[Rfam]
Rfam assigns this 168-nucleotide RNA from Hibiscus trionum to the family "Small nucleolar RNA snoR138".
By type it is an H/ACA-box small nucleolar RNA.
Its family is annotated with RNA processing and nucleolus in the Gene Ontology.
The base pairs follow the family's consensus structure, which was predicted with mfold.
A reference for the family is Chen and Wu (2009), "Mining small RNA sequencing data: a new approach to identify small nucleolar RNAs in Arabidopsis", Nucleic Acids Res.
The family has 7 seed sequences and 308 matches in Rfam 15.1.

RNA sequence: AAUGCCUUUCGAAUAACCAGAUGGUUAGAUUAUAAUCCAACGCCGUUUGGUUCAGACAGAGGCUGAGAUCAAAACUCGAAACAAUUUUGAGUUUAAGGAACGAGUGAUUUUCCGCCGCUCCUUUUCCAAGUUUGUCUUCGUAUAUUCCUUUGUUUUUUUCUAAUUUAU
Numbered sequence: 001a002a003u004g005c006c007u008u009u010c011g012a013a014u015a016a017c018c019a020g021a022u023g024g025u026u027a028g029a030u031u032a033u034a035a036u037c038c039a040a041c042g043c044c045g046u047u048u049g050g051u052u053c054a055g056a057c058a059g060a061g062g063c064u065g066a067g068a069u070c071a072a073a074a075c076u077c078g079a080a081a082c083a084a085u086u087u088u089g090a091g092u093u094u095a096a097g098g099a100a101c102g103a104g105u106g107a108u109u110u111u112c113c114g115c116c117g118c119u120c121c122u123u124u125u126c127c128a129a130g131u132u133u134g135u136c137u138u139c140g141u142a143u144a145u146u147c148c149u150u151u152g153u154u155u156u157u158u159u160c161u162a163a164u165u166u167a168u
Base pairs, nucleotide, nucleotide: 004063005062006061007060009059015052016051017050018049019048020047021046022045024043025042078160079159080158081157082134083133084132087129088128089127091126095123096122097121098120099119140155142153143152144151